[Rfam]
The record is a 158-nucleotide RNA from Glycine soja, which matches "MIR4371 microRNA precursor family" in Rfam. Pairs were carried over by alignment from the consensus structure, which was predicted with RNAalifold. Rfam 15.1 lists 321 matches to the family in 4 species.
RNA sequence: CUGUUCAGUGAUGAGGUGACAGACAAAGUGUCACAUUAUCACAUCUUGUCACGGACACCUCAUUAUCAUGUCAUAACCUUCAAUGAUGUGGCAUUGGUAUGUCGGUGAUUGGGUAUGAUGGCAUGCCACUUUGUCUAUCAUAUCAUCAGUUAACGAAA
Numbered sequence: 001c002u003g004u005u006c007a008g009u010g011a012u013g014a015g016g017u018g019a020c021a022g023a024c025a026a027a028g029u030g031u032c033a034c035a036u037u038a039u040c041a042c043a044u045c046u047u048g049u050c051a052c053g054g055a056c057a058c059c060u061c062a063u064u065a066u067c068a069u070g071u072c073a074u075a076a077c078c079u080u081c082a083a084u085g086a087u088g089u090g091g092c093a094u095u096g097g098u099a100u101g102u103c104g105g106u107g108a109u110u111g112g113g114u115a116u117g118a119u120g121g122c123a124u125g126c127c128a129c130u131u132u133g134u135c136u137a138u139c140a141u142a143u144c145a146u147c148a149g150u151u152a153a154c155g156a157a158a
Stems, first nucleotide, its partner, number of pairs: 002155004007150001009148006016141004021136010032125002036121006043114004048109005054103004070087005
The source organism's lineage runs through Eukaryota, Streptophyta, Gunneridae, Phaseoleae and Glycine subgen. Soja.